[Rfam]
RNA sequence: GGUGCAAGUGAUGACAGUAUAGACAGGGACUCAGACUCUUCGGAGGAUGUUCGAUUUGUCUUUUGGGAAAUCUAUCUGAUGCACC
Numbered sequence: 001g002g003u004g005c006a007a008g009u010g011a012u013g014a015c016a017g018u019a020u021a022g023a024c025a026g027g028g029a030c031u032c033a034g035a036c037u038c039u040u041c042g043g044a045g046g047a048u049g050u051u052c053g054a055u056u057u058g059u060c061u062u063u064u065g066g067g068a069a070a071u072c073u074a075u076c077u078g079a080u081g082c083a084c085c
Base pairs, nucleotide, nucleotide: 002084003083004082005081006080